[Rfam]
RNA: Small nucleolar RNA U6-53/MBII-28
Organism: Jaculus jaculus
RNA sequence: UCCCAAUGAUGAGCUGCCAUGCUAAUACUGAGCCACCAGCUAGGGCAUUGUUGCCCUGGUUUGGGUGCCCAUGAGUUUAACAAAACUUCUCACAUGGAGACCUGAGGGAC
Numbered sequence: 001u002c003c004c005a006a007u008g009a010u011g012a013g014c015u016g017c018c019a020u021g022c023u024a025a026u027a028c029u030g031a032g033c034c035a036c037c038a039g040c041u042a043g044g045g046c047a048u049u050g051u052u053g054c055c056c057u058g059g060u061u062u063g064g065g066u067g068c069c070c071a072u073g074a075g076u077u078u079a080a081c082a083a084a085a086c087u088u089c090u091c092a093c094a095u096g097g098a099g100a101c102c103u104g105a106g107g108g109a110c
Stems, first nucleotide, its partner, number of pairs: 001109004041058005